The record is an 83-nucleotide sequence from Amylibacter sp. SFDW26, which matches "chrB-a RNA" in Rfam. The organism belongs to Amylibacter, within Bacteria. Rfam classes the family as a cis-regulatory element.
RNA sequence: UACAUGGGGACCGCGAAUGCCCCGUGAGGCGCCAGCCCAAGUUUCGCAUCCGAUAACCCUAACCAAAGGAAGGAUGCGCUAUG
Numbered sequence: 001u002a003c004a005u006g007g008g009g010a011c012c013g014c015g016a017a018u019g020c021c022c023c024g025u026g027a028g029g030c031g032c033c034a035g036c037c038c039a040a041g042u043u044u045c046g047c048a049u050c051c052g053a054u055a056a057c058c059c060u061a062a063c064c065a066a067a068g069g070a071a072g073g074a075u076g077c078g079c080u081a082u083g
Stems, first nucleotide, its partner, number of pairs: 005024005046077006